mir-7 microRNA precursor family: an 87-nucleotide RNA sequence from Microcaecilia unicolor.
RNA sequence: UGUCCGGUCCUGUCUGGAAGACUAGUGAUUUUGUUGUUCUGACUUUAGUGUGACAACAAGUCCCUGUCUGCCGUACAGUGCAGGUCC
Numbered sequence: 001u002g003u004c005c006g007g008u009c010c011u012g013u014c015u016g017g018a019a020g021a022c023u024a025g026u027g028a029u030u031u032u033g034u035u036g037u038u039c040u041g042a043c044u045u046u047a048g049u050g051u052g053a054c055a056a057c058a059a060g061u062c063c064c065u066g067u068c069u070g071c072c073g074u075a076c077a078g079u080g081c082a083g084g085u086c087c
Base pairs, nucleotide, nucleotide: 002086004084005083007081008080010078011077012076013075015073016072017071019069020068021067022066025064027062028061029060030059031058033057034056035055036054037053038052
For this family Rfam cites "Identification of novel genes coding for small expressed RNAs" (Lagos-Quintana et al., Science, 2001). The source organism's lineage runs through Eukaryota, Bilateria, Tetrapoda, Gymnophiona and Microcaecilia. Rfam describes the family as follows. This family represents the microRNA (miRNA) precursor mir-7.